RNA sequence: CUCAUUCUGUCGGGGUGCCUCAUUCAAGAGGCUGAGAUCGCAAUCGCGGGUCCCGUUGAACCUGAUCUGGUUAGUGCCAGCGUAGGGAACAGAAAAGCCAGUUGC
Numbered sequence: 001c002u003c004a005u006u007c008u009g010u011c012g013g014g015g016u017g018c019c020u021c022a023u024u025c026a027a028g029a030g031g032c033u034g035a036g037a038u039c040g041c042a043a044u045c046g047c048g049g050g051u052c053c054c055g056u057u058g059a060a061c062c063u064g065a066u067c068u069g070g071u072u073a074g075u076g077c078c079a080g081c082g083u084a085g086g087g088a089a090c091a092g093a094a095a096a097g098c099c100a101g102u103u104g105c
Base pairs, nucleotide, nucleotide: 006093007092008091009090010089011055012054013053014052016049017032018031019030020029021028039048040047041046061086062085063084064083067080068079069078070077
RNA: TPP riboswitch aptamer (THI element)